Source information
A member of the RNA family "U2 spliceosomal RNA" from Puccinia graminis, 190 nucleotides long. Lineage of the source: Eukaryota > Pucciniomycetes > Pucciniales > Pucciniaceae > Puccinia graminis. Pairs were carried over by alignment from the consensus structure, which is taken from published work. For this family Rfam cites "The uRNA database" (Zwieb, Nucleic Acids Res, 1997). A search with the family's covariance model found it, with a score of 129 bits.

RNA sequence: AUCCAUUCUGGCCUUUGGCUUAGAUCAAGUGUAGUAUCUGUUCUUAUCAGUGUAAUUGCUGGUAUUGGUUCAUCGAACCAAUCAAUUAAUUACUCUCAUCUUUGAAAUGCCCUCCUCCACAUCCUGGCUCGCCAGACUGCAGGAGACGAUGGCCUUGGGCUCUCACUACCCCCUCGUGCUGUCAGGCAAC
Numbered sequence: 001a002u003c004c005a006u007u008c009u010g011g012c013c014u015u016u017g018g019c020u021u022a023g024a025u026c027a028a029g030u031g032u033a034g035u036a037u038c039u040g041u042u043c044u045u046a047u048c049a050g051u052g053u054a055a056u057u058g059c060u061g062g063u064a065u066u067g068g069u070u071c072a073u074c075g076a077a078c079c080a081a082u083c084a085a086u087u088a089a090u091u092a093c094u095c096u097c098a099u100c101u102u103u104g105a106a107a108u109g110c111c112c113u114c115c116u117c118c119a120c121a122u123c124c125u126g127g128c129u130c131g132c133c134a135g136a137c138u139g140c141a142g143g144a145g146a147c148g149a150u151g152g153c154c155u156u157g158g159g160c161u162c163u164c165a166c167u168a169c170c171c172c173c174u175c176g177u178g179c180u181g182u183c184a185g186g187c188a189a190c
Base pairs, nucleotide, nucleotide: 007024008023009022010020011019012018013017045064046063047062048061049060050059065081066080067079068078069077070076071075112145113144114143115142116141118139119138124135125134126133127132148183149182150181151180152179153178154176157173158172159171